[Rfam]
Rfam assigns this 88-nucleotide RNA from Streptomyces lacrimifluminis to the family "dauA ncRNA motif". For this family Rfam cites "The discovery of novel noncoding RNAs in 50 bacterial genomes" (Narunsky et al., Nucleic Acids Res, 2024). The base pairs follow the family's consensus structure, which is taken from published work. The match comes from Rfam's covariance-model search (79 bits). dauA ncRNA motif was reported as a strong cis regulatory motif candidate, with potential to be a cis regulatory riboswitch type, it have been identified in genomes of the genus Streptomyces.

RNA sequence: ACGACACCGCCGGGAGCGCGCUCAGGAAGCCGGAACUCCGGCACCACCGCACCCGCUGCCGGAUGGUCUUCCGAACCGAGGCAUCAUG
Dot-bracket structure: (.(.(....((((.((((.(....((..(((((....)))))....))...).)))).)))).(((.........))).).).)....